Background:
The record is a 62-nucleotide RNA from Aotus nancymaae, which matches "U7 small nuclear RNA" in Rfam.

[Rfam]
RNA sequence: CAGUGUUCUCGCUCUUCUAGAAUUUGUCUAGCAGGUUUUCUGCUUUUCAUUAGAAAAUCCCC
Numbered sequence: 001c002a003g004u005g006u007u008c009u010c011g012c013u014c015u016u017c018u019a020g021a022a023u024u025u026g027u028c029u030a031g032c033a034g035g036u037u038u039u040c041u042g043c044u045u046u047u048c049a050u051u052a053g054a055a056a057a058u059c060c061c062c
Stems, first nucleotide, its partner, number of pairs: 034059009044049001